The record is a 98-nucleotide RNA sequence from Gymnodraco acuticeps, which matches "Z30 small nucleolar RNA" in Rfam. It is annotated as a C/D-box small nucleolar RNA.
RNA sequence: CUGCUAUGAUGAGUUACAAGUGACUGAUCUGGUAUUGUGUUCCUCCGGGAGCAGCUCUGACCAGGGAAUGAUCUGCACUUAAUCUUCUCGCUGAGCAG
Numbered sequence: 001c002u003g004c005u006a007u008g009a010u011g012a013g014u015u016a017c018a019a020g021u022g023a024c025u026g027a028u029c030u031g032g033u034a035u036u037g038u039g040u041u042c043c044u045c046c047g048g049g050a051g052c053a054g055c056u057c058u059g060a061c062c063a064g065g066g067a068a069u070g071a072u073c074u075g076c077a078c079u080u081a082a083u084c085u086u087c088u089c090g091c092u093g094a095g096c097a098g
Stems, first nucleotide, its partner, number of pairs: 003096002037055001038053002
Its family is annotated with RNA processing and nucleolus in the Gene Ontology. The literature on the family includes a 2002 paper in Mol Cell Biol by Galardi et al., "Purified box C/D snoRNPs are able to reproduce site-specific 2'-O-methylation of target RNA in vitro".